[Rfam]
RNA sequence: CGGGGACGAAGCAGGCUCCCCGUCAGACGGUCCGCCGUCCAAGCUCUGC
Numbered sequence: 001c002g003g004g005g006a007c008g009a010a011g012c013a014g015g016c017u018c019c020c021c022g023u024c025a026g027a028c029g030g031u032c033c034g035c036c037g038u039c040c041a042a043g044c045u046c047u048g049c
Stems, first nucleotide, its partner, number of pairs: 001022006011049005026039005